[Rfam]
RNA sequence: AGUGAUGGUAGAGGUGCGAGCCUUAAUAGUAAAAGUUUGGAGAAGAUUGAGCUUCUGUGAAAAACUUUGAAAGGAUUGCUCGCCGAAGUGGAGAAAGACUCAUUCUUUUCUUUGCUGGUCCUGCGUUUAAAAAAUGUAGGAUUGUCAAGAUGAAAUAUCUUGGAGAGCUAUCUCACAU
Numbered sequence: 001a002g003u004g005a006u007g008g009u010a011g012a013g014g015u016g017c018g019a020g021c022c023u024u025a026a027u028a029g030u031a032a033a034a035g036u037u038u039g040g041a042g043a044a045g046a047u048u049g050a051g052c053u054u055c056u057g058u059g060a061a062a063a064a065c066u067u068u069g070a071a072a073g074g075a076u077u078g079c080u081c082g083c084c085g086a087a088g089u090g091g092a093g094a095a096a097g098a099c100u101c102a103u104u105c106u107u108u109u110c111u112u113u114g115c116u117g118g119u120c121c122u123g124c125g126u127u128u129a130a131a132a133a134a135u136g137u138a139g140g141a142u143u144g145u146c147a148a149g150a151u152g153a154a155a156u157a158u159c160u161u162g163g164a165g166a167g168c169u170a171u172c173u174c175a176c177a178u
Base pairs, nucleotide, nucleotide: 007172008171009170010169011168016083017082018081019080020079021078024075032068033067034066035065036064037063038062087116088115089114090113091112092111093110094109095108096107097106117143118142119141120140121139122138123137124136125135126134127133145163146162147161148160149159150158151157
Dot-bracket structure: ......(((((....((((((..(.......(((((((.......................)))))))......)..))))))...(((((((((((........)))))))))))(((((((((((.....))))))))))).(((((((.....)))))))....)))))......
Record summary
A member of the RNA family "Lysine riboswitch aptamer" from Pseudoneobacillus rhizosphaerae, 178 nucleotides long. Taxonomically the source falls in Pseudoneobacillus (Bacteria, Bacillati, Caryophanales, Bacillaceae). It scores 130 bits against the family's covariance model. Pairs were carried over by alignment from the consensus structure, which is taken from published work.